[Rfam]
RNA sequence: UGGUUAUCAAGAGUGAACGAGAGUACUGGCUCUAUGACUUCACAGCAACCUACCUGAACAGGUAAGGUGCUCCCUCCAGCAAAGCAAAAUUUGCUUUGAAUGAUAACGA
Numbered sequence: 001u002g003g004u005u006a007u008c009a010a011g012a013g014u015g016a017a018c019g020a021g022a023g024u025a026c027u028g029g030c031u032c033u034a035u036g037a038c039u040u041c042a043c044a045g046c047a048a049c050c051u052a053c054c055u056g057a058a059c060a061g062g063u064a065a066g067g068u069g070c071u072c073c074c075u076c077c078a079g080c081a082a083a084g085c086a087a088a089a090u091u092u093g094c095u096u097u098g099a100a101u102g103a104u105a106a107c108g109a
Stems, first nucleotide, its partner, number of pairs: 001109001003107006013043005021032003026079004044071004049067002051064004080098006
Shown here is a 109-nucleotide sequence from Paraliobacillus quinghaiensis, a member of the family "SAM riboswitch aptamer (S box leader)". It scores 76 bits against the family's covariance model. Taxonomically the source falls in Paraliobacillus (Bacteria, Bacilli, Caryophanales, Bacillaceae).